[Rfam]
RNA sequence: AGUAAUAGAAUAGGUGACUCAAGGGUGGUCGGCUCACUCCCGUACGAAAGGGGGUGGUGCCAAUGUCGGUAUUUGAAUCGUUAAUGAUUGCGAUAGCUUUUGCAACAUUAGUCGUGUUGAUACUAGCGUUUAACCAUAAAAAAUAACCCAUCCUUGAGUUAGGCCUCAGAUAGGUUAUCCCGUUUGUUCGCUGAUCCCCCUUGAAGGGAAACCUGCUAUUACCUAUUGG
Numbered sequence: 001a002g003u004a005a006u007a008g009a010a011u012a013g014g015u016g017a018c019u020c021a022a023g024g025g026u027g028g029u030c031g032g033c034u035c036a037c038u039c040c041c042g043u044a045c046g047a048a049a050g051g052g053g054g055u056g057g058u059g060c061c062a063a064u065g066u067c068g069g070u071a072u073u074u075g076a077a078u079c080g081u082u083a084a085u086g087a088u089u090g091c092g093a094u095a096g097c098u099u100u101u102g103c104a105a106c107a108u109u110a111g112u113c114g115u116g117u118u119g120a121u122a123c124u125a126g127c128g129u130u131u132a133a134c135c136a137u138a139a140a141a142a143a144u145a146a147c148c149c150a151u152c153c154u155u156g157a158g159u160u161a162g163g164c165c166u167c168a169g170a171u172a173g174g175u176u177a178u179c180c181c182g183u184u185u186g187u188u189c190g191c192u193g194a195u196c197c198c199c200c201u202u203g204a205a206g207g208g209a210a211a212c213c214u215g216c217u218a219u220u221a222c223c224u225a226u227u228g229g
Base pairs, nucleotide, nucleotide: 001220002219003218004217006215007214008213011194013192014191015190016189018158019157020156021155022154023153024152025151027148028147029146034057035056036055037054038053039052040051041050065127066126068124069123070122071121078093079092080091103119104118105117106116167182169180195210197208198207

The record is a 229-nucleotide RNA from Sporosarcina limicola, which matches "BsrG" in Rfam. Rfam 15.1 lists 614 matches to the family in 343 species. A search with the family's covariance model found it, with a score of 91 bits. For this family Rfam cites "Novel small RNA-encoding genes in the intergenic regions of Bacillus subtilis" (Saito et al., Gene, 2008). bsrE, bsrG and bsrH pair through intermolecular interactions with antisense sRNAs. They form type I toxin/antitoxin system that includes an mRNA encoding for a short, toxic peptide (bsrE, bsrG and bsrH) and an antitoxin that is comprised of an antisense RNA. bsrG encodes a 39-amino-acid toxin, and the 180 nucleotide antisense sRNA called SR4 acts as the antitoxin (they overlap by 123 nucleotides). SR4 interaction with the 3'UTR of bsrG RNA promotes bsrG degradation and inhibits its translation. Rfam classes the family as a small RNA.